The family of this 193-nucleotide RNA from Sulfuriferula sp. AH1 is "Proteobacterial sRNA psRNA2". The base pairs follow the family's consensus structure. Rfam classes the family as a small RNA. The match comes from Rfam's covariance-model search (127 bits).

RNA sequence: GGGUUACUCCUUGGCGCUUGCGCGCUUUGUUUGAUAAAGAUUCGCACCUAUAUCAAACCGGGUAACCUCACCUUUGGCAAGGCCAUACUGUCAGAUCAAGUCGGAACUACUACAUUUGAUCCCAUGCACUACGGAUUGAUUCUCGCCGCACUGCUGGUCGCCGGCAUCCUGCACUGGCUGGUAGGAAGCGUUU
Numbered sequence: 001g002g003g004u005u006a007c008u009c010c011u012u013g014g015c016g017c018u019u020g021c022g023c024g025c026u027u028u029g030u031u032u033g034a035u036a037a038a039g040a041u042u043c044g045c046a047c048c049u050a051u052a053u054c055a056a057a058c059c060g061g062g063u064a065a066c067c068u069c070a071c072c073u074u075u076g077g078c079a080a081g082g083c084c085a086u087a088c089u090g091u092c093a094g095a096u097c098a099a100g101u102c103g104g105a106a107c108u109a110c111u112a113c114a115u116u117u118g119a120u121c122c123c124a125u126g127c128a129c130u131a132c133g134g135a136u137u138g139a140u141u142c143u144c145g146c147c148g149c150a151c152u153g154c155u156g157g158u159c160g161c162c163g164g165c166a167u168c169c170u171g172c173a174c175u176g177g178c179u180g181g182u183a184g185g186a187a188g189c190g191u192u193u
Stems, first nucleotide, its partner, number of pairs: 001068007009061002014025004029058008038049002070191002075148003081142002085140002090107002092104001094102003110134002114130001163182001168177002